[Rfam]
RNA sequence: GUCCCCAAGGCGAAUAGUCACCCUGUGUGUGUGCGUGGCCGAUCGGUCUAGCCUUGCGGCCUGUA
Number, nucleotide and partner (000 for none) at each position: 001g061002u000003c059004c058005c000006c056007a055008a054009g053010g052011c051012g000013a000014a000015u000016a000017g034018u033019c031020a030021c029022c000023c000024u000025g000026u000027g000028u000029g021030u020031g019032u000033g018034c017035g000036u000037g048038g047039c046040c045041g000042a000043u000044c000045g040046g039047u038048c037049u000050a000051g011052c010053c009054u008055u007056g006057c000058g004059g003060c000061c001062u000063g000064u000065a000
RNA: DUF3800-IX RNA